The family of this 108-nucleotide sequence from Pseudomonas sp. FeS53a is "Y RNA-like". It scores 82 bits against the family's covariance model. In Deinococcus radiodurans Rsr is tethered via Y RNA to the exoribonuclease PNPase and channels single-stranded RNA into the PNPase cavity. Taxonomically the source falls in Pseudomonas (Bacteria, Pseudomonadati, Gammaproteobacteria, Pseudomonadales).
[Rfam]
Nucleotides: 108
Base pairs, nucleotide, nucleotide: 002104003103004102005101006100007099014089015088016087017086018085019084024080025079031047032046033045034044035043038071048059049058050057051056062077063076064075065074
Number, partner (000 for none) and nucleotide at each position: 001000g002104c003103a004102g005101c006100g007099a008000a009000u010000g011000c012000a013000a014089u015088g016087g017086g018085c019084a020000c021000u022000a023000c024080a025079u026000g027000u028000g029000u030000c031047g032046c033045g034044g035043g036000u037000u038071c039000g040000a041000g042000c043035c044034c045033c046032g047031c048059c049058c050057c051056g052000g053000c054000a055000a056051c057050g058049g059048g060000u061000a062077g063076c064075u065074c066000a067000g068000u069000u070000g071038g072000u073000a074065g075064a076063g077062c078000a079025a080024u081000u082000c083000a084019u085018g086017u087016c088015c089014a090000c091000a092000u093000c094000c095000c096000u097000u098000g099007u100006c101005g102004c103003u104002g105000c106000a107000c108000c